The family of this 73-nucleotide RNA from Chelonoidis abingdonii is "mir-16 microRNA precursor family". Clan: mir-15 clan. A search with the family's covariance model found it, with a score of 40 bits. For this family Rfam cites "Frequent deletions and down-regulation of micro- RNA genes miR15 and miR16 at 13q14 in chronic lymphocytic leukemia" (Calin et al., Proc Natl Acad Sci U S A, 2002). NCBI's taxonomy places the organism under Eukaryota, Opisthokonta, Metazoa, Testudinata, Chelonoidis nigra species complex. The family has 14 seed sequences and 4,705 matches in Rfam 15.1.
RNA sequence: UGAAGGCAGCAGCACAGAAGUAAGGGUGGCAUGAUAUGGUAUUACCACCCUUACUUCUGUGCUGCUGCUGGCG
Number, nucleotide and partner (000 for none) at each position: 001u073002g072003a000004a000005g069006g068007c067008a066009g065010c064011a063012g062013c061014a060015c059016a000017g056018a000019a055020g054021u053022a052023a051024g050025g049026g048027u000028g000029g000030c000031a000032u000033g000034a000035u000036a000037u000038g000039g000040u000041a000042u000043u000044a000045c000046c000047a000048c026049c025050c024051u023052u022053a021054c020055u019056u017057c000058u000059g015060u014061g013062c012063u011064g010065c009066u008067g007068c006069u005070g000071g000072c002073g001